Rfam assigns this 65-nucleotide sequence from Saimiri boliviensis to the family "Small nucleolar RNA SNORD43". The literature on the family includes a 2000 paper in Biochim Biophys Acta by Duga et al., "The intron-containing L3 ribosomal protein gene (RPL3): sequence analysis and identification of U43 and of two novel intronic small nucleolar RNAs". Clan: SNORD43 clan. Lineage of the source: Eukaryota > Gnathostomata > Euarchontoglires > Saimiriinae > Saimiri boliviensis. From the family's description: U43 is a C/D box small nucleolar RNA that is encoded in intron 1 of the ribosomal protein L3 gene in human and cow. Three other snoRNAs ( U82, U83a and U83b) are also encoded in the same host gene but from different introns. The rice homologue is expressed from a cluster also containing snoR16. The family's RNA type in Rfam is C/D-box small nucleolar RNA. Gene Ontology terms of the family: nucleolus and RNA processing.

Nucleotides: 065
Stems, first nucleotide, its partner, number of pairs: 001065004
Number, partner (000 for none) and nucleotide at each position: 001065u002064a003063g004062a005000a006000g007000u008000g009000a010000c011000u012000g013000g014000a015000g016000u017000u018000u019000u020000u021000g022000a023000u024000g025000g026000a027000u028000g029000u030000g031000c032000a033000g034000a035000c036000a037000c038000u039000g040000u041000g042000u043000a044000c045000u046000g047000a048000u049000u050000g051000c052000c053000a054000u055000g056000u057000u058000c059000u060000g061000a062004u063003u064002u065001a